A member of the RNA family "Archaeal large subunit ribosomal RNA" from a Candidatus Methanophagaceae archaeon, 100 nucleotides of a longer RNA. Taxonomically the source falls in Candidatus Methanophagaceae (Archaea, Methanobacteriati, Methanobacteriota, Methanomicrobia). Pairs were carried over by alignment from the consensus structure, which is taken from published work.

[Rfam]
RNA sequence: GAUACGGCCUGAAAGUGAUGAAGGAGCCCGAAGGAGAAUCCCGUGAGGGAUGGGUACGAGGGCUCAUGAACAGGGUCGUAUCGUACGUUCUGGAGAACGG
Numbered sequence: 001g002a003u004a005c006g007g008c009c010u011g012a013a014a015g016u017g018a019u020g021a022a023g024g025a026g027c028c029c030g031a032a033g034g035a036g037a038a039u040c041c042c043g044u045g046a047g048g049g050a051u052g053g054g055u056a057c058g059a060g061g062g063c064u065c066a067u068g069a070a071c072a073g074g075g076u077c078g079u080a081u082c083g084u085a086c087g088u089u090c091u092g093g094a095g096a097a098c099g100g
Stems, first nucleotide, its partner, number of pairs: 001082010015071002024065006033057001038051005086099003